[Rfam]
Nucleotides: 261
Base pairs, nucleotide, nucleotide: 002014003013004012019258020257021256022255023254026251027250028249029248030247035245036244037243038241039240040239041238042237043236044235045234047232048231049230050229051228052227053226062223063222064221065220066219067218070215071214072213073212075207076206077205078204079203080201081200082199084196085195086194087193088192089191090190091189092188094135096133097132098131100130101129102128103127105123106122107121108120109119111118112117136140144187145186146185147184148183149182150181154179155178156177157176162171163170164169
Number, partner (000 for none) and nucleotide at each position: 001000u002014a003013c004012c005000u006000g007000u008000a009000a010000c011000g012004g013003g014002u015000c016000u017000u018000c019258a020257c021256c022255a023254g024000a025000a026251g027250g028249u029248g030247c031000a032000c033000c034000g035245u036244c037243a038241u039240c040239c041238a042237c043236a044235c045234u046000c047232a048231c049230c050229u051228c052227c053226c054000u055000g056000c057000c058000a059000c060000u061000a062223c063222c064221c065220u066219u067218g068000c069000a070215g071214g072213a073212g074000c075207c076206c077205a078204g079203u080201u081200c082199g083000a084196g085195u086194c087193u088192c089191g090190u091189g092188g093000c094135g095000u096133c097132c098131a099000c100130u101129u102128c103127a104000c105123u106122c107121a108120u109119g110000c111118a112117g113000g114000u115000a116000a117112c118111u119109c120108a121107u122106g123105a124000u125000g126000c127103u128102g129101g130100a131098u132097g133096g134000a135094c136140c137000u138000a139000a140136g141000c142000a143000a144187u145186g146185a147184a148183a149182g150181c151000a152000a153000u154179u155178g156177g157176c158000g159000a160000g161000g162171g163170a164169a165000g166000a167000a168000a169164u170163u171162c172000u173000g174000c175000a176157g177156c178155c179154g180000g181150g182149c183148u184147u185146u186145c187144a188092c189091c190090a191089u192088g193087g194086g195085a196084c197000g198000g199082c200081g201080g202000c203079g204078c205077u206076g207075g208000a209000c210000u211000a212073c213072u214071c215070c216000c217000a218067c219066g220065a221064g222063g223062g224000u225000u226053g227052g228051g229050g230049g231048g232047u233000a234045g235044g236043u237042g238041u239040g240039g241038g242000c243037u244036g245035g246000g247030g248029u249028a250027u251026c252000g253000a254023c255022u256021g257020g258019u259000a260000u261000u

Record summary: The family of this 261-nucleotide RNA from Paraphoma chrysanthemicola is "Fungal signal recognition particle RNA". The base pairs follow the family's consensus structure, which is taken from published work. It scores 137 bits against the family's covariance model. Rfam classes the family as a non-coding RNA gene. Rfam links the family to the GO terms signal recognition particle, endoplasmic reticulum targeting, signal recognition particle, plasma membrane targeting and SRP-dependent cotranslational protein targeting to membrane, signal sequence recognition. For this family Rfam cites "Prediction of signal recognition particle RNA genes" (Regalia et al., Nucleic Acids Res, 2002). Taxonomically the source falls in Paraphoma (Eukaryota, Opisthokonta, Pleosporineae, Phaeosphaeriaceae). The family is grouped with related families in Rfam's "SRP clan".